Source information
The family of this 105-nucleotide sequence from Clostridium tyrobutyricum is "SAM riboswitch aptamer (S box leader)". The base pairs follow the family's consensus structure, which is taken from published work. NCBI's taxonomy places the organism under Bacteria, Eubacteriales, Clostridiaceae, Clostridium, Clostridium tyrobutyricum. Rfam's curators write: The SAM riboswitch is found upstream of a number of genes which code for proteins involved in methionine or cysteine biosynthesis in Gram-positive bacteria. Gene Ontology term of the family: regulation of gene expression.
RNA sequence: UUCUUAUCGAGAGAGAUGGAGGGACUGGCCCUAUGAUGUCCGGCAACCUGAAUUAUUUAUAUUCAAUGGUGCUAAUUCCAGCAGAGGUAAUCUGAAAGAUGAGAA
Number, nucleotide and partner (000 for none) at each position: 001u105002u104003c103004u102005u101006a100007u099008c098009g000010a000011g000012a000013g041014a000015g040016a039017u038018g000019g000020a000021g031022g030023g029024a000025c081026u080027g079028g078029c023030c022031c021032u000033a000034u000035g000036a000037u000038g017039u016040c015041c013042g073043g072044c071045a070046a000047c069048c068049u065050g064051a063052a062053u000054u000055a000056u000057u000058u000059a000060u000061a000062u052063u051064c050065a049066a000067u000068g048069g047070u045071g044072c043073u042074a000075a000076u000077u097078c028079c027080a026081g025082c094083a093084g092085a091086g000087g000088u000089a000090a000091u085092c084093u083094g082095a000096a000097a077098g008099a007100u006101g005102a004103g003104a002105a001